Group II catalytic intron D1-D4-6: a 238-nucleotide RNA from Anaerovirgula multivorans. The organism belongs to Anaerovirgula, within Bacteria. A search with the family's covariance model found it, with a score of 156 bits. Rfam's curators write: Group II introns are found in rRNA, tRNA and mRNA of organelles in fungi, plants and protists, and also in mRNA in bacteria.
RNA sequence: GAAAUCCUAUCUGGUAAGGCAUUAGCCAAGCCACCAGUAGCGAGUCUUGGAGUAGAGGGAGUAAUCCUGAUAUUUAAGCGUAGACAGUUAGGUAGUAGGCCCGAAGUCCGGGAGGACGAGUGAUUGAGCCUCGUAAGACUGAAUAAUAGGGAAGGACGACAGUGUCGACGUACUGGAAGACAACAUCUAGUUAAGCGUAACGGCAAGUUUAACUAGGCUUCCCCGGGGUCGAAGAGCC
Numbered sequence: 001g002a003a004a005u006c007c008u009a010u011c012u013g014g015u016a017a018g019g020c021a022u023u024a025g026c027c028a029a030g031c032c033a034c035c036a037g038u039a040g041c042g043a044g045u046c047u048u049g050g051a052g053u054a055g056a057g058g059g060a061g062u063a064a065u066c067c068u069g070a071u072a073u074u075u076a077a078g079c080g081u082a083g084a085c086a087g088u089u090a091g092g093u094a095g096u097a098g099g100c101c102c103g104a105a106g107u108c109c110g111g112g113a114g115g116a117c118g119a120g121u122g123a124u125u126g127a128g129c130c131u132c133g134u135a136a137g138a139c140u141g142a143a144u145a146a147u148a149g150g151g152a153a154g155g156a157c158g159a160c161a162g163u164g165u166c167g168a169c170g171u172a173c174u175g176g177a178a179g180a181c182a183a184c185a186u187c188u189a190g191u192u193a194a195g196c197g198u199a200a201c202g203g204c205a206a207g208u209u210u211a212a213c214u215a216g217g218c219u220u221c222c223c224c225g226g227g228g229u230c231g232a233a234g235a236g237c238c
Base pairs, nucleotide, nucleotide: 011037012036013035014034018032019031022028023206025204026203040088041087044085045084046083047082048080049079050075051074052073053072054071057068058067059066060065125232126230128229129228130227131226132225133224149223150222151221152220153219154218155181157179160175161174162173163172186217187216188215189214190213191212192211193210194209195208196207